[Rfam]
RNA sequence: GGAGGUUCUCAGGGCGGGGUGCGAUUCCCCACCGGCGGUGAUGGGGCCGGGUCCGCGACAGCGGGCCGACCCCACGAGCCCGCGAGCGCCCGGUCACCACGACCGGGGACCAGCAGAUCCGGUGUGAAUCCGGAGCCGACGGUGACAGUCCGGAUGAGAGAGAACGGCC
Numbered sequence: 001g002g003a004g005g006u007u008c009u010c011a012g013g014g015c016g017g018g019g020u021g022c023g024a025u026u027c028c029c030c031a032c033c034g035g036c037g038g039u040g041a042u043g044g045g046g047c048c049g050g051g052u053c054c055g056c057g058a059c060a061g062c063g064g065g066c067c068g069a070c071c072c073c074a075c076g077a078g079c080c081c082g083c084g085a086g087c088g089c090c091c092g093g094u095c096a097c098c099a100c101g102a103c104c105g106g107g108g109a110c111c112a113g114c115a116g117a118u119c120c121g122g123u124g125u126g127a128a129u130c131c132g133g134a135g136c137c138g139a140c141g142g143u144g145a146c147a148g149u150c151c152g153g154a155u156g157a158g159a160g161a162g163a164a165c166g167g168c169c
Stems, first nucleotide, its partner, number of pairs: 005165006017029003031149002033138002035083004086114002118134005140152003
Rfam assigns this 169-nucleotide RNA from Williamsia sterculiae to the family "FMN riboswitch aptamer (RFN element)". The source organism's lineage runs through Bacteria, Bacillati, Actinomycetes, Nocardiaceae and Williamsia. On this family, see Winkler et al., Proc Natl Acad Sci U S A 2002: "An mRNA structure that controls gene expression by binding FMN".